[Rfam]
RNA sequence: GCAACUCUCCCGUGUCGACACAACAUCCUGCCGCGAUGUUGACUGACCUGCCGUGUCAGACGUCGGCGGAGUUGC
Numbered sequence: 001g002c003a004a005c006u007c008u009c010c011c012g013u014g015u016c017g018a019c020a021c022a023a024c025a026u027c028c029u030g031c032c033g034c035g036a037u038g039u040u041g042a043c044u045g046a047c048c049u050g051c052c053g054u055g056u057c058a059g060a061c062g063u064c065g066g067c068g069g070a071g072u073u074g075c
Stems, first nucleotide, its partner, number of pairs: 001075007010066003013062002022040006043059005
Dot-bracket structure: (((((((..(((((.......((((((.......))))))..(((((.......))))).)).)))..)))))))
The record is a 75-nucleotide sequence from Fusarium albosuccineum, which matches "bZIP non canonical Hac1/Xbp1 intron" in Rfam. The source organism's lineage runs through Eukaryota, Opisthokonta, Ascomycota, sordariomyceta and Fusarium decemcellulare species complex. The base pairs follow the family's consensus structure, which was predicted with RNAfold. bZIP intron RNA is a non-canonical intron that was first reported in HAC1 gene in yeast and XBP1 gene in Metazoa. Rfam 15.1 lists 1,325 matches to the family in 1,320 species.